[Rfam]
RNA: Small nucleolar RNA SNORD115
Organism: Orycteropus afer
RNA sequence: GGGUAAAUUAUGAGAUCUAAAUUAGUAUUGAAGAGAGAUAACACAAAACCUCCUCAAUAGGAGUAUGCUGCUGCCC
Dot-bracket structure: ((((.(.(..........................................................).)...))))